[Rfam]
RNA: Guanidine-II riboswitch aptamer (mini-ykkC)
RNA sequence: AAGUGAGGGCGACCUCACCUCUCUGCACAUCAUCGGGGACGACCCCU
Dot-bracket structure: (.((((((....)))))).)..............((((....)))).
Numbered sequence: 001a002a003g004u005g006a007g008g009g010c011g012a013c014c015u016c017a018c019c020u021c022u023c024u025g026c027a028c029a030u031c032a033u034c035g036g037g038g039a040c041g042a043c044c045c046c047u
Stems, first nucleotide, its partner, number of pairs: 001020001003018006035046004